[Rfam]
The family of this 117-nucleotide sequence is "Xanthomonadaceae sRNA asX1". The base pairs follow the family's consensus structure, which was predicted with CMfinder.

RNA sequence: CACCCAGGAUGGCAUGCGCCUUGUGCGCAACGGACCGGAAUUGGAACAGGGGCCGGUCCAAGCGCAUCGUGGGGAAGCAGAGGGGCCGGCAGUCGGGGGACUGUCGGCCCUGUUUUU
Numbered sequence: 001c002a003c004c005c006a007g008g009a010u011g012g013c014a015u016g017c018g019c020c021u022u023g024u025g026c027g028c029a030a031c032g033g034a035c036c037g038g039a040a041u042u043g044g045a046a047c048a049g050g051g052g053c054c055g056g057u058c059c060a061a062g063c064g065c066a067u068c069g070u071g072g073g074g075a076a077g078c079a080g081a082g083g084g085g086c087c088g089g090c091a092g093u094c095g096g097g098g099g100a101c102u103g104u105c106g107g108c109c110c111u112g113u114u115u116u117u
Stems, first nucleotide, its partner, number of pairs: 003073004008068004012063002015029004032059001033057001035056004041050002082111013